This 139-nucleotide RNA from Panicum virgatum belongs to the Rfam family "Small nucleolar RNA snoR136". For this family Rfam cites "Mining small RNA sequencing data: a new approach to identify small nucleolar RNAs in Arabidopsis" (Chen and Wu, Nucleic Acids Res, 2009). A search with the family's covariance model found it, with a score of 51 bits. Rfam links the family to the GO terms RNA processing and nucleolus. Rfam classes the family as an H/ACA-box small nucleolar RNA. NCBI's taxonomy places the organism under Eukaryota, Embryophyta, Paniceae, Panicinae, Panicum sect. Hiantes. The family's consensus secondary structure was predicted with mfold.
RNA sequence: CUGGCUUCUCUUGAAUUCGUGUGCCUGUGAGCCCGUAUGGUUCGCGGGCAGUUCCAAGAAUGUGAAGCAAAAGGAUUUGUUCCUCUCGCUAUCCGGCGCGUAACUUUGUGAUGCGAUUGGACGUCGAGGAACUACAGUU
Numbered sequence: 001c002u003g004g005c006u007u008c009u010c011u012u013g014a015a016u017u018c019g020u021g022u023g024c025c026u027g028u029g030a031g032c033c034c035g036u037a038u039g040g041u042u043c044g045c046g047g048g049c050a051g052u053u054c055c056a057a058g059a060a061u062g063u064g065a066a067g068c069a070a071a072a073g074g075a076u077u078u079g080u081u082c083c084u085c086u087c088g089c090u091a092u093c094c095g096g097c098g099c100g101u102a103a104c105u106u107u108g109u110g111a112u113g114c115g116a117u118u119g120g121a122c123g124u125c126g127a128g129g130a131a132c133u134a135c136a137g138u139u
Stems, first nucleotide, its partner, number of pairs: 001067002004063002013054002016051002023049011079132007087123002092121005101110002
Dot-bracket structure: ((.((.......((.((.....(((((((((((.....))))))))))))).)).......))..))...........(((((((.((...(((((....((......))......)))))))..))))))).......